[Rfam]
Nucleotides: 262
Stems, first nucleotide, its partner, number of pairs: 005117007014108004020044004026038004048055002061084004068077003087100004120260002123257001127250006136226011147214001149181004156173007186211003191207002194205002228238003
Number, partner (000 for none) and nucleotide at each position: 001000g002000a003000g004000u005117g006116c007115a008114u009113c010112c011111g012000a013000c014108c015107g016106g017105c018000a019000a020044g021043u022042c023041u024000a025000a026038c027037a028036c029035g030000u031000u032000c033000a034000u035029c036028g037027u038026g039000g040000a041023a042022g043021g044020c045000g046000c047000a048055g049054g050000g051000a052000a053000a054049c055048c056000g057000a058000c059000a060000u061084g062083g063082c064081c065000g066000c067000a068077g069076u070075c071000u072000u073000a074000c075070g076069a077068c078000a079000a080000g081064g082063g083062c084061c085000g086000c087100c088099g089098u090097g091000u092000u093000c094000a095000a096000g097090c098089g099088c100087g101000g102000g103000g104000a105017g106016u107015c108014g109000a110000c111011c112010g113009g114008a115007u116006g117005c118000g119000a120260c121259c122000c123257g124000a125000a126000a127250c128249c129248g130247a131246g132245u133000g134000a135000u136226c137225u138224a139223c140222u141221c142220c143219g144218a145217g146216g147214c148000a149181g150180g151179a152178u153000g154000a155000a156173g157172c158171g159170u160169g161168c162167c163000g164000a165000a166000a167162g168161g169160c170159a171158c172157g173156u174000g175000g176000a177000g178152g179151u180150c181149c182000g183000u184000u185000a186211g187210c188209g189000u190000u191207g192206g193000u194205g195204u196000c197000c198000u199000a200000c201000a202000a203000u204195a205194c206192c207191c208000u209188c210187g211186c212000g213000u214147g215000a216146u217145c218144u219143u220142g221141g222140a223139g224138u225137a226136g227000g228238g229237g230236u231000g232000a233000a234000a235000g236230g237229c238228c239000c240000a241000u242000c243000g244000a245132a246131c247130u248129c249128g250127g251000c252000a253000a254000c255000a256000g257123c258000u259121g260120g261000u262000u

Background: Rfam assigns this 262-nucleotide part of an RNA from Halobaculum gomorrense to the family "Archaeal large subunit ribosomal RNA". Pairs were carried over by alignment from the consensus structure, which is taken from published work. Its family is annotated with structural constituent of ribosome and ribosome in the Gene Ontology. The source organism's lineage runs through Archaea, Methanobacteriota, Halobacteriales, Haloferacaceae and Halobaculum.